A member of the RNA family "HDV ribozyme from F. prausnitzii" from Rodentolepis nana, 70 nucleotides long. Its family is annotated with catalytic activity in the Gene Ontology.
RNA sequence: GGUGUGCGAUUGACUUACCUCCACGUGGUGCACCCUAGGCAACGUAUGCUCAUACGGCAAAAAGGUCUAU
Numbered sequence: 001g002g003u004g005u006g007c008g009a010u011u012g013a014c015u016u017a018c019c020u021c022c023a024c025g026u027g028g029u030g031c032a033c034c035c036u037a038g039g040c041a042a043c044g045u046a047u048g049c050u051c052a053u054a055c056g057g058c059a060a061a062a063a064g065g066u067c068u069a070u
Stems, first nucleotide, its partner, number of pairs: 001036002004033004017029003043056005
Taxonomically the source falls in Rodentolepis (Eukaryota, Protostomia, Platyhelminthes, Cyclophyllidea).